[Rfam]
The family of this 90-nucleotide sequence from Ornithorhynchus anatinus is "Small nucleolar RNA MBII-202". It is one of the family's seed sequences. By type it is a C/D-box small nucleolar RNA. The source organism's lineage runs through Eukaryota, Deuterostomia, Amniota, Monotremata and Ornithorhynchus. Gene Ontology terms of the family: nucleolus and RNA processing.
RNA sequence: UGAUGACACAUUCUCCGGAAUCUCUGUACUGCCUCUGAUGAAAGUAUAAUUGAACCCUUUUCCAUCUGAUGACUGCGGCUGCCGCUCAGU
Numbered sequence: 001u002g003a004u005g006a007c008a009c010a011u012u013c014u015c016c017g018g019a020a021u022c023u024c025u026g027u028a029c030u031g032c033c034u035c036u037g038a039u040g041a042a043a044g045u046a047u048a049a050u051u052g053a054a055c056c057c058u059u060u061u062c063c064a065u066c067u068g069a070u071g072a073c074u075g076c077g078g079c080u081g082c083c084g085c086u087c088a089g090u
Base pairs, nucleotide, nucleotide: 002090004088005087006086